A member of the RNA family "Ma3 gene ribosomal frameshift signal" from Cervus elaphus, 61 nucleotides long. Rfam links the family to the GO term translational frameshifting. On this family, see Wills et al., J Biol Chem 2006: "A functional -1 ribosomal frameshift signal in the human paraneoplastic Ma3 gene". The family has 12 seed sequences and 565 matches in Rfam 15.1. The family's RNA type in Rfam is frameshift element. The base pairs follow the family's consensus structure, which is taken from published work. NCBI's taxonomy places the organism under Eukaryota, Dipnotetrapodomorpha, Pecora, Cervinae, Cervus elaphus.
RNA sequence: GGGGAACAAGAAAGGGGCUGGGACCAUUGAGCUACCCCAAGCCCUAGGAAGCAUAGGCUCA
Numbered sequence: 001g002g003g004g005a006a007c008a009a010g011a012a013a014g015g016g017g018c019u020g021g022g023a024c025c026a027u028u029g030a031g032c033u034a035c036c037c038c039a040a041g042c043c044c045u046a047g048g049a050a051g052c053a054u055a056g057g058c059u060c061a
Stems, first nucleotide, its partner, number of pairs: 014045006021038002029060005